[Rfam]
RNA sequence: CCUGCGGGGCUGCCAUCUGUCUGCCUGUCUGUGCCUGCUGUACAGGAGCAGAAUGUCUGCACAGCAAGUGUAGACAGGCAGACACACCACAACACUGAU
Numbered sequence: 001c002c003u004g005c006g007g008g009g010c011u012g013c014c015a016u017c018u019g020u021c022u023g024c025c026u027g028u029c030u031g032u033g034c035c036u037g038c039u040g041u042a043c044a045g046g047a048g049c050a051g052a053a054u055g056u057c058u059g060c061a062c063a064g065c066a067a068g069u070g071u072a073g074a075c076a077g078g079c080a081g082a083c084a085c086a087c088c089a090c091a092a093c094a095c096u097g098a099u
Stems, first nucleotide, its partner, number of pairs: 018084002022080009034068001036066006043059003
Shown here is a 99-nucleotide RNA sequence from Gadus morhua, a member of the family "mir-214 microRNA precursor family". A reference for the family is Shao et al. (2008), "Identification of novel chicken microRNAs and analysis of their genomic organization", Gene. The organism belongs to Gadus, within Eukaryota. A search with the family's covariance model found it, with a score of 71 bits. The family's consensus secondary structure was predicted with RNAalifold.